Description:
The family of this 166-nucleotide sequence is "ZMP/ZTP riboswitch aptamer (pfl RNA motif)". Pairs were carried over by alignment from the consensus structure, which is taken from published work.

RNA sequence: AGCGGGGCACGCAACUGGCGAUAGGCGCGCAAGUCCCACCGGGCUGCGCUGCUGACGUGGAGACCCGCAAAAACAAGCCGUUUUUUGCAAACCACUGGGGAGCGUGCCGCGCGGAACAAGGCAGCGUUUGCCCCGCCGCGAUCCGUCGUUCGCCUGGGCAGCCCUU
Numbered sequence: 001a002g003c004g005g006g007g008c009a010c011g012c013a014a015c016u017g018g019c020g021a022u023a024g025g026c027g028c029g030c031a032a033g034u035c036c037c038a039c040c041g042g043g044c045u046g047c048g049c050u051g052c053u054g055a056c057g058u059g060g061a062g063a064c065c066c067g068c069a070a071a072a073a074c075a076a077g078c079c080g081u082u083u084u085u086u087g088c089a090a091a092c093c094a095c096u097g098g099g100g101a102g103c104g105u106g107c108c109g110c111g112c113g114g115a116a117c118a119a120g121g122c123a124g125c126g127u128u129u130g131c132c133c134c135g136c137c138g139c140g141a142u143c144c145g146u147c148g149u150u151c152g153c154c155u156g157g158g159c160a161g162c163c164c165u166u
Base pairs, nucleotide, nucleotide: 003111004110006108007107008106009105010104011103012102015099016098017154018153019152020151021150057095058094059093060092143161145159146158147157